[Rfam]
RNA sequence: UGCACUGCAUGGUAUCUGCACUCUGCAGUUUCCUCCUGCUGGCAUGUUCAAGGGACAAUGCAAUAGAAAUUCAAUAUCUAGCAUGGUUGGUUUUCUUGGCUUGUGCAUGUUAAACCUGGUAUUUCUAUUGCUUACAACA
Numbered sequence: 001u002g003c004a005c006u007g008c009a010u011g012g013u014a015u016c017u018g019c020a021c022u023c024u025g026c027a028g029u030u031u032c033c034u035c036c037u038g039c040u041g042g043c044a045u046g047u048u049c050a051a052g053g054g055a056c057a058a059u060g061c062a063a064u065a066g067a068a069a070u071u072c073a074a075u076a077u078c079u080a081g082c083a084u085g086g087u088u089g090g091u092u093u094u095c096u097u098g099g100c101u102u103g104u105g106c107a108u109g110u111u112a113a114a115c116c117u118g119g120u121a122u123u124u125c126u127a128u129u130g131c132u133u134a135c136a137a138c139a
Stems, first nucleotide, its partner, number of pairs: 002061003006057002015054003018047003023042001025039004064127007071119003081106004
The record is a 139-nucleotide RNA from Sciurus carolinensis, which matches "Small nucleolar RNA SNORA8" in Rfam. Rfam describes the family as follows. ACA8 is a member of the H/ACA class of snoRNA that guide the sites of modification of uridines to pseudouridines. The family is grouped with related families in Rfam's "SNORA8 clan". Its family is annotated with nucleolus and RNA processing in the Gene Ontology. The source organism's lineage runs through Eukaryota, Boreoeutheria, Sciuromorpha, Sciurini and Sciurus. The base pairs follow the family's consensus structure, which was predicted with RNAfold.